[Rfam]
The family of this 52-nucleotide sequence from Tropicimonas sp. IMCC6043 is "serC leader". Rfam describes the family as follows. This family is a putative regulatory RNA structure that is found upstream of the serC-serA operon in some alpha-proteobacteria. The final stem of the structure overlaps the ribosome binding site of the serC reading frame. The source organism's lineage runs through Bacteria, Pseudomonadati, Pseudomonadota, Roseobacteraceae and Tropicimonas. The base pairs follow the family's consensus structure.

RNA sequence: CCUCGGGACACCCCUCCCCAACGAGGGGCAUAUAUCUGGAAGGAUACCACCA
Numbered sequence: 001c002c003u004c005g006g007g008a009c010a011c012c013c014c015u016c017c018c019c020a021a022c023g024a025g026g027g028g029c030a031u032a033u034a035u036c037u038g039g040a041a042g043g044a045u046a047c048c049a050c051c052a
Base pairs, nucleotide, nucleotide: 011028012027013026014025015024016023033046034045035044036043037042